This 155-nucleotide RNA from Streptococcus massiliensis belongs to the Rfam family "M-box riboswitch aptamer (ykoK leader)". Rfam describes the family as follows. M-box riboswitch, also know as ykoK leader is described as a metaloregulatory RNA that sense divalent metals and function as a genetic control element of genes related to divalent metal transport in bacteria. The organism belongs to Streptococcus, within Bacteria. The match comes from Rfam's covariance-model search (88 bits).

[Rfam]
RNA sequence: UAUAUCAUUCGGUAGGUGAGGCUACCAUAGGGAUACGGACGGCUGCCGCAAAGGGGUGGAGACACUUCGCGCUGGUCAACAGUGGUGAUCGCCAAGGUUACAACUAAUGUCGUUUCAUCGCCCUACGGAGGUAAAGCUUGAACGAUAACGUCCAA
Numbered sequence: 001u002a003u004a005u006c007a008u009u010c011g012g013u014a015g016g017u018g019a020g021g022c023u024a025c026c027a028u029a030g031g032g033a034u035a036c037g038g039a040c041g042g043c044u045g046c047c048g049c050a051a052a053g054g055g056g057u058g059g060a061g062a063c064a065c066u067u068c069g070c071g072c073u074g075g076u077c078a079a080c081a082g083u084g085g086u087g088a089u090c091g092c093c094a095a096g097g098u099u100a101c102a103a104c105u106a107a108u109g110u111c112g113u114u115u116c117a118u119c120g121c122c123c124u125a126c127g128g129a130g131g132u133a134a135a136g137c138u139u140g141a142a143c144g145a146u147a148a149c150g151u152c153c154a155a
Stems, first nucleotide, its partner, number of pairs: 006150001008148002011143001013095001015138003020132001022130001025128002028125005039113005046074001048072002055066004082104002085101001088098003